Shown here is a 202-nucleotide RNA from Burkholderia plantarii, a member of the family "Proteobacterial sRNA psRNA2". The match comes from Rfam's covariance-model search (133 bits). The literature on the family includes a 2010 paper in FEMS Microbiol Lett by Gvakharia et al., "Computational prediction and transcriptional analysis of sRNAs in Nitrosomonas europaea". The family has 7 seed sequences and 122 matches in Rfam 15.1. The organism belongs to Burkholderia, within Bacteria. It is annotated as a small RNA.
[Rfam]
Nucleotides: 202
Stems, first nucleotide, its partner, number of pairs: 001067004006062002009060002014025004027058009037048002069200002075151003081144002090107002092104005110139001114136001166193002171189004176183001
Number, partner (000 for none) and nucleotide at each position: 001067g002066g003065g004064u005000g006062a007061c008000u009060c010059c011000u012000u013000g014025g015024c016023g017022c018000u019000u020000g021000c022017g023016c024015g025014c026000u027058g028057u029056u030055u031054u032053g033052a034051u035050g036000a037048a038047g039000a040000u041000u042000c043000g044000c045000a046000c047038c048037u049000c050035u051034a052033u053032c054031a055030a056029a057028a058027c059010g060009g061007g062006u063000a064004a065003c066002c067001c068000c069200a070199c071000c072000u073000c074000c075151u076150g077149g078000c079000a080000a081144g082143g083000c084000c085000u086000u087000a088000c089000u090107g091106u092104c093103a094102g095101a096100u097000c098000a099000a100096g101095u102094c103093u104092g105000a106091a107090c108000u109000u110139c111000u112000a113000c114136a115000c116000c117000u118000u119000a120000u121000c122000c123000c124000c125000g126000c127000u128000g129000c130000c131000c132000a133000a134000a135000c136114u137000c138000u139110g140000c141000u142000u143082c144081c145000u146000g147000c148000g149077c150076c151075g152000u153000c154000c155000a156000c157000c158000c159000u160000g161000c162000c163000a164000c165000c166193c167192g168000c169000u170000c171189g172188c173187u174186c175000a176183a177000c178000g179000u180000c181000a182000a183176u184000c185000c186174g187173a188172g189171c190000c191000c192167c193166g194000g195000c196000c197000g198000c199070g200069u201000c202000g